[Rfam]
RNA sequence: GAGUAUGGCAGCUCUUUUAGAAUUUGUCUAGCAGGCUUUCUGGUCCUCACCAGAAGACCCAA
Numbered sequence: 001g002a003g004u005a006u007g008g009c010a011g012c013u014c015u016u017u018u019a020g021a022a023u024u025u026g027u028c029u030a031g032c033a034g035g036c037u038u039u040c041u042g043g044u045c046c047u048c049a050c051c052a053g054a055a056g057a058c059c060c061a062a
Base pairs, nucleotide, nucleotide: 034059035058037056038055039054040053041052042051043050044049
RNA: U7 small nuclear RNA
Organism: Otolemur garnettii